[Rfam]
RNA sequence: GGUCAAUCAUGUAAUGAUAUGUAUUAGCUGAAUCCACAGUUGAUGUGAAUUUUAAAAUUAUACUGAGACCUU
Numbered sequence: 001g002g003u004c005a006a007u008c009a010u011g012u013a014a015u016g017a018u019a020u021g022u023a024u025u026a027g028c029u030g031a032a033u034c035c036a037c038a039g040u041u042g043a044u045g046u047g048a049a050u051u052u053u054a055a056a057a058u059u060a061u062a063c064u065g066a067g068a069c070c071u072u
Stems, first nucleotide, its partner, number of pairs: 001070004

Background:
The record is a 72-nucleotide RNA from Prolemur simus, which matches "Small nucleolar RNA SNORD45" in Rfam. Gene Ontology terms of the family: nucleolus and RNA processing. The match comes from Rfam's covariance-model search (85 bits). A reference for the family is Huttenhofer et al. (2001), "RNomics: an experimental approach that identifies 201 candidates for novel, small, non-messenger RNAs in mouse", EMBO J. Rfam 15.1 lists 1,629 matches to the family in 521 species. The family's RNA type in Rfam is C/D-box small nucleolar RNA.